[Rfam]
RNA: Listeria sRNA rli38
RNA sequence: AUUGAGUGGGAAUAAAAGGCUAACUUGAUUUGAAGAGAGAACGCCUAUCUGACAGUGUUUAACCUAGCCUUAAAUGUACAAAUUGAUUAAAAAUAAUAUGGUUCCCUACCAAAAACCCUACCAAAAAUAAAAUUUGGUAGGGAAUUUUGU
Numbered sequence: 001a002u003u004g005a006g007u008g009g010g011a012a013u014a015a016a017a018g019g020c021u022a023a024c025u026u027g028a029u030u031u032g033a034a035g036a037g038a039g040a041a042c043g044c045c046u047a048u049c050u051g052a053c054a055g056u057g058u059u060u061a062a063c064c065u066a067g068c069c070u071u072a073a074a075u076g077u078a079c080a081a082a083u084u085g086a087u088u089a090a091a092a093a094u095a096a097u098a099u100g101g102u103u104c105c106c107u108a109c110c111a112a113a114a115a116c117c118c119u120a121c122c123a124a125a126a127a128u129a130a131a132a133u134u135u136g137g138u139a140g141g142g143a144a145u146u147u148u149g150u
Base pairs, nucleotide, nucleotide: 008106009105010104011103012102051079055077056076058074059073060072061071062070084096086094087093113146114145116142117141118140119139120138121137122136123135124134125133